Shown here is a 62-nucleotide sequence from Fulvimonas soli, a member of the family "Fluoride riboswitch aptamer (crcB RNA motif)". The match comes from Rfam's covariance-model search (51 bits).
[Rfam]
Nucleotides: 062
Base pairs, nucleotide, nucleotide: 010025011024012023013022016053017052018051019050020049021048033043034042035041
Number, partner (000 for none) and nucleotide at each position: 001000g002000c003000g004000a005000a006000g007000c008000a009000g010025g011024g012023c013022g014000a015000u016053g017052g018051a019050g020049u021048c022013c023012g024011c025010c026000u027000u028000c029000g030000a031000c032000c033043g034042c035041c036000c037000c038000c039000a040000g041035g042034g043033c044000u045000g046000a047000u048021g049020a050019c051018u052017c053016c054000u055000a056000c057000a058000g059000g060000u061000a062000u